[Rfam]
RNA sequence: AGAAUGACCUUCAAUGAGACUCGUAUAAUCUCAGGGAUAGGGCCUGAAAGUUUCUACCGCUCGACCGUAAAUCGAGCGACUACGAGGAGAGGACUUCGGAUU
Number, nucleotide and partner (000 for none) at each position: 001a000002g000003a000004a000005u000006g000007a000008c000009c000010u000011u000012c000013a000014a000015u000016g000017a000018g000019a000020c086021u085022c084023g083024u082025a081026u000027a000028a000029u049030c000031u047032c046033a045034g044035g043036g000037a000038u000039a000040g000041g000042g000043c035044c034045u033046g032047a031048a000049a029050g000051u000052u000053u000054c000055u000056a000057c000058c078059g077060c076061u075062c074063g073064a072065c000066c000067g000068u000069a000070a000071a000072u064073c063074g062075a061076g060077c059078g058079a000080c000081u025082a024083c023084g022085a021086g020087g000088a000089g000090a000091g000092g000093a000094c000095u000096u000097c000098g000099g000100a000101u000102u000
A member of the RNA family "Purine riboswitch aptamer" from Brevibacillus sp. WF146, 102 nucleotides long. Gene Ontology term of the family: purine nucleobase biosynthetic process. It scores 80 bits against the family's covariance model.